[Rfam]
Rfam assigns this 190-nucleotide RNA from Vibrio sp. 16 to the family "MicX Vibrio cholerae sRNA". The literature on the family includes a 2007 paper in Mol Microbiol by Davis and Waldor, "RNase E-dependent processing stabilizes MicX, a Vibrio cholerae sRNA". The family's consensus secondary structure was predicted with CMfinder. Taxonomically the source falls in Vibrio (Bacteria, Pseudomonadati, Pseudomonadota, Gammaproteobacteria). Rfam's curators put it in the seed alignment. It is annotated as a small RNA.
RNA sequence: AUAAGAACGAUAAGGGCGACCGCGAGGUCGCCCAUUUUGUAUCUCGACUUAACAAUUUUGGUUUGGCCGCCGAUCAGUUAAGAAGAGUGCAAUUCUGGCGUUACGCAUAGCUGGCUGUUAGUGAGAUUCCUUACUGUUUACUUCUAACAGUUUUUGUAACCAAAACCCGGUUUGUCCCGGGUUUUUUUAU
Numbered sequence: 001a002u003a004a005g006a007a008c009g010a011u012a013a014g015g016g017c018g019a020c021c022g023c024g025a026g027g028u029c030g031c032c033c034a035u036u037u038u039g040u041a042u043c044u045c046g047a048c049u050u051a052a053c054a055a056u057u058u059u060g061g062u063u064u065g066g067c068c069g070c071c072g073a074u075c076a077g078u079u080a081a082g083a084a085g086a087g088u089g090c091a092a093u094u095c096u097g098g099c100g101u102u103a104c105g106c107a108u109a110g111c112u113g114g115c116u117g118u119u120a121g122u123g124a125g126a127u128u129c130c131u132u133a134c135u136g137u138u139u140a141c142u143u144c145u146a147a148c149a150g151u152u153u154u155u156g157u158a159a160c161c162a163a164a165a166c167c168c169g170g171u172u173u174g175u176c177c178c179g180g181g182u183u184u185u186u187u188u189a190u
Stems, first nucleotide, its partner, number of pairs: 014033008042091001043087001048082006058073005100160006113152009164183007